[Rfam]
RNA sequence: CAAUUCUCUUUGUAAGAAGAAAGAGAAGCAGAUCUAUUCUAUACUCUAUAAGUGCCAAUAUGCAAUGGGG
Numbered sequence: 001c002a003a004u005u006c007u008c009u010u011u012g013u014a015a016g017a018a019g020a021a022a023g024a025g026a027a028g029c030a031g032a033u034c035u036a037u038u039c040u041a042u043a044c045u046c047u048a049u050a051a052g053u054g055c056c057a058a059u060a061u062g063c064a065a066u067g068g069g070g
Stems, first nucleotide, its partner, number of pairs: 004023002007020005044069003052061003
Plastid-clpP 5UTR RNA: a 70-nucleotide sequence from Dregeochloa pumila.
Pairs were carried over by alignment from the consensus structure, which was predicted with LocARNA.
Plastid clpP is a non-coding RNA (ncRNA) recognised in plastids. It was found in the prime untranslated region (5UTR) of a protease complex subunit (clpP) in plastids, suggesting a posible cis-regulatory function.
It is annotated as a cis-regulatory element.